[Rfam]
RNA sequence: UGUCUCCUCCACCUUCUCAUAUUGGUGGAUUCGCCCCGUAGUCUUUUGGAUUACGGGGCAUUUUUC
Numbered sequence: 001u002g003u004c005u006c007c008u009c010c011a012c013c014u015u016c017u018c019a020u021a022u023u024g025g026u027g028g029a030u031u032c033g034c035c036c037c038g039u040a041g042u043c044u045u046u047u048g049g050a051u052u053a054c055g056g057g058g059c060a061u062u063u064u065u066c
Stems, first nucleotide, its partner, number of pairs: 008029006033059011
Betaproteobacteria toxic small RNA: a 66-nucleotide sequence from Corticibacter populi. From the family's description: Overexpression in amino aid rich medium attenuates growth, suggesting role in repressing amino acid intake and metabolism. The organism belongs to Corticibacter, within Bacteria. The family has 51 seed sequences and 951 matches in Rfam 15.1.